SL1 RNA: a 104-nucleotide RNA sequence from Setaria digitata.
[Rfam]
RNA sequence: GGUUUAAUUACCCAAGUUUGAGGUAAUUGAAUGUUUCAGCCCAGAGUUUCGGCUCAUGUGGCUUGAAAAUAAAUUUUGGAACGUCCUGUGCUAAACGGGACAAA
Number, nucleotide and partner (000 for none) at each position: 001g000002g000003u031004u030005u029006a028007a027008u026009u025010a024011c023012c022013c000014a000015a000016g000017u000018u000019u000020g000021a000022g012023g011024u010025a009026a008027u007028u006029g005030a004031a003032u000033g000034u068035u067036u066037c065038a000039g062040c061041c060042c000043a000044g000045a000046g000047u000048u000049u000050c000051g000052g000053c000054u000055c000056a000057u000058g000059u000060g041061g040062c039063u000064u000065g037066a036067a035068a034069a000070u000071a000072a000073a000074u000075u000076u000077u000078g000079g000080a000081a000082c000083g101084u100085c099086c098087u097088g096089u094090g000091c000092u000093a000094a089095a000096c088097g087098g086099g085100a084101c083102a000103a000104a000

By type it is a non-coding RNA gene. Rfam's curators put it in the seed alignment. Rfam links the family to the GO term mRNA trans splicing, via spliceosome. About the family: This family represents the SL1 RNA. SL1 is commonly located in the spacer region between 5S-rRNA genes where it is involved in trans-splicing. Trans-splicing is a form of RNA processing. The acquisition of a spliced leader from a SL RNA is a intra-molecular reaction which precisely joins exons derived from separately transcribed RNAs. The source organism's lineage runs through Eukaryota, Metazoa, Nematoda, Rhabditida and Setaria. Clan: SL clan.